[Rfam]
This 105-nucleotide RNA sequence from Serratia sp. DD3 belongs to the Rfam family "Tryptophan operon leader".

RNA sequence: CUUCGUUGGUGGCGUCAAUCUCAAUCAAGGGUUGAGUGGUAACGCAUGCCUGUCAUCUGACACUGCAAAUUCCCGAGGCCCGCCGAAAGUAGCGGGCUUUUUUAU
Numbered sequence: 001c002u003u004c005g006u007u008g009g010u011g012g013c014g015u016c017a018a019u020c021u022c023a024a025u026c027a028a029g030g031g032u033u034g035a036g037u038g039g040u041a042a043c044g045c046a047u048g049c050c051u052g053u054c055a056u057c058u059g060a061c062a063c064u065g066c067a068a069a070u071u072c073c074c075g076a077g078g079c080c081c082g083c084c085g086a087a088a089g090u091a092g093c094g095g096g097c098u099u100u101u102u103u104a105u
Base pairs, nucleotide, nucleotide: 009043010042012040014037015036018033020031021030022029077098078097079096080095081094082093083092084089